[Rfam]
The record is an 85-nucleotide RNA from Paspalum vaginatum, which matches "Small nucleolar RNA Z102/R77" in Rfam. NCBI's taxonomy places the organism under Eukaryota, Streptophyta, Magnoliopsida, Poales, Paspalum. It scores 71 bits against the family's covariance model. The family's consensus secondary structure was predicted with PFOLD. Rfam classes the family as a C/D-box small nucleolar RNA.
RNA sequence: AGAUGAUGUGAUGAUUGAACGGUUUCCUGUUGAUUUCAUUGGCCGCCAUGAUGGCUCAAACUAUAUUAGCUCUAUUUGAUCAUUU
Numbered sequence: 001a002g003a004u005g006a007u008g009u010g011a012u013g014a015u016u017g018a019a020c021g022g023u024u025u026c027c028u029g030u031u032g033a034u035u036u037c038a039u040u041g042g043c044c045g046c047c048a049u050g051a052u053g054g055c056u057c058a059a060a061c062u063a064u065a066u067u068a069g070c071u072c073u074a075u076u077u078g079a080u081c082a083u084u085u
Stems, first nucleotide, its partner, number of pairs: 002084004041056004